Rfam assigns this 210-nucleotide RNA from Polypterus senegalus to the family "Small nucleolar RNA U3".
A search with the family's covariance model found it, with a score of 135 bits.
On this family, see Zwieb, Nucleic Acids Res 1997: "The uRNA database".
Small nucleolar RNAs (snoRNAs) are involved in the processing and modification of rRNA in the nucleolus. There are two main classes of snoRNAs: the box C/D class, and the box H/ACA class.
The organism belongs to Polypterus, within Eukaryota.
The family has 87 seed sequences and 19,072 matches in Rfam 15.1.
The base pairs follow the family's consensus structure, which is taken from published work.
RNA sequence: AAGGCUAUACUUUUAGGGAUCAUUUCUAUAGUUUGUUCCUAGAGAAAUGUGUUUCUGAAGUGCUUGGUCUCGCUACCCACGAUGAAGAUUGACUUUGUUUUCUUCUGAGCGUGAUGGUCAGUAGUAAGUGUUUGUCUGUAAGACUACUUGCUACGUUUGAUGAUCGCUUUCUCUGGAGAAGCAGAAAGAAGGAAACAUUCUCUGAGUGGU
Numbered sequence: 001a002a003g004g005c006u007a008u009a010c011u012u013u014u015a016g017g018g019a020u021c022a023u024u025u026c027u028a029u030a031g032u033u034u035g036u037u038c039c040u041a042g043a044g045a046a047a048u049g050u051g052u053u054u055c056u057g058a059a060g061u062g063c064u065u066g067g068u069c070u071c072g073c074u075a076c077c078c079a080c081g082a083u084g085a086a087g088a089u090u091g092a093c094u095u096u097g098u099u100u101u102c103u104u105c106u107g108a109g110c111g112u113g114a115u116g117g118u119c120a121g122u123a124g125u126a127a128g129u130g131u132u133u134g135u136c137u138g139u140a141a142g143a144c145u146a147c148u149u150g151c152u153a154c155g156u157u158u159g160a161u162g163a164u165c166g167c168u169u170u171c172u173c174u175g176g177a178g179a180a181g182c183a184g185a186a187a188g189a190a191g192g193a194a195a196c197a198u199u200c201u202c203u204g205a206g207u208g209g210u
Stems, first nucleotide, its partner, number of pairs: 002040003006035002009032003014028005049065001051063001054062001077209004096197011109167003121154003126149004130144004168181005